[Rfam]
RNA sequence: AGGGAAAAGAAGAAGCACCCGCUUCUCACCUGAUUGACGCAAUGAGCAGUUAACAGGUUUUACGAGCAAUUUUUGAUUCGUUUAUGUUUGUUUUCGUAAAGUGUGGGUGUAUUAUUCAUCCACACUUUUUUAAUUGC
Numbered sequence: 001a002g003g004g005a006a007a008a009g010a011a012g013a014a015g016c017a018c019c020c021g022c023u024u025c026u027c028a029c030c031u032g033a034u035u036g037a038c039g040c041a042a043u044g045a046g047c048a049g050u051u052a053a054c055a056g057g058u059u060u061u062a063c064g065a066g067c068a069a070u071u072u073u074u075g076a077u078u079c080g081u082u083u084a085u086g087u088u089u090g091u092u093u094u095c096g097u098a099a100a101g102u103g104u105g106g107g108u109g110u111a112u113u114a115u116u117c118a119u120c121c122a123c124a125c126u127u128u129u130u131u132a133a134u135u136g137c
Stems, first nucleotide, its partner, number of pairs: 011026006028058003036051003039047002102124008111115001

This 137-nucleotide sequence from Bacillus yapensis belongs to the Rfam family "Ribosomal protein L20 leader". NCBI's taxonomy places the organism under Bacteria, Bacillati, Bacillota, Bacilli, Bacillus. Its family is annotated with regulation of gene expression in the Gene Ontology. The family's consensus secondary structure was predicted with CMfinder. Rfam classes the family as a cis-regulatory leader.